[Rfam]
RNA sequence: AGGUCAGUUCGAAGGCCCAGUACUUGUACCAUUGUAAGUGCAAUGUGGUUCAAAAGCUGACCAAGA
Numbered sequence: 001a002g003g004u005c006a007g008u009u010c011g012a013a014g015g016c017c018c019a020g021u022a023c024u025u026g027u028a029c030c031a032u033u034g035u036a037a038g039u040g041c042a043a044u045g046u047g048g049u050u051c052a053a054a055a056g057c058u059g060a061c062c063a064a065g066a
Base pairs, nucleotide, nucleotide: 002062003061004060005059006058007057008056009055017048018047019046021045022044024043025042026041027040028039029038

Record summary: Shown here is a 66-nucleotide RNA sequence from Trypanosoma brucei, a member of the family "Trypanosomatid snoRNA TB11Cs5H3". NCBI's taxonomy places the organism under Eukaryota, Discoba, Kinetoplastea, Trypanosoma, Trypanosoma brucei gambiense. Rfam classes the family as an H/ACA-box small nucleolar RNA. Rfam links the family to the GO terms RNA processing and nucleolus.